The record is a 101-nucleotide RNA from Streptomyces xanthii, which matches "TPP riboswitch aptamer (THI element)" in Rfam. NCBI's taxonomy places the organism under Bacteria, Actinomycetota, Actinomycetes, Kitasatosporales, Streptomyces.

[Rfam]
RNA sequence: CUGCCCGACACGGGGUGCUCCCGCACAUGCGAGGAGCUGAGAUCACACCCGUAGAACCUGAACCAGUUAGCACUGGCGGAGGGAUGUCAGCGAUGUCGAUA
Numbered sequence: 001c002u003g004c005c006c007g008a009c010a011c012g013g014g015g016u017g018c019u020c021c022c023g024c025a026c027a028u029g030c031g032a033g034g035a036g037c038u039g040a041g042a043u044c045a046c047a048c049c050c051g052u053a054g055a056a057c058c059u060g061a062a063c064c065a066g067u068u069a070g071c072a073c074u075g076g077c078g079g080a081g082g083g084a085u086g087u088c089a090g091c092g093a094u095g096u097c098g099a100u101a
Stems, first nucleotide, its partner, number of pairs: 007088004011051004016045001017037005057082003063076004